RNA: MIR396 microRNA precursor family
Organism: Ipomoea nil
RNA sequence: UGUCAUGCUUUUCCACAGCUUUCUUGAACUUCUUAAACUCAUCUCAUGAAUCUUCAUCAUCUCUGAGAUUUGAUUAAGCAUUGAAGUCCAAGAAAGCUGUGGGAAAACAUGGCAA
Numbered sequence: 001u002g003u004c005a006u007g008c009u010u011u012u013c014c015a016c017a018g019c020u021u022u023c024u025u026g027a028a029c030u031u032c033u034u035a036a037a038c039u040c041a042u043c044u045c046a047u048g049a050a051u052c053u054u055c056a057u058c059a060u061c062u063c064u065g066a067g068a069u070u071u072g073a074u075u076a077a078g079c080a081u082u083g084a085a086g087u088c089c090a091a092g093a094a095a096g097c098u099g100u101g102g103g104a105a106a107a108c109a110u111g112g113c114a115a
Stems, first nucleotide, its partner, number of pairs: 003112005013102003017098006024091003029086004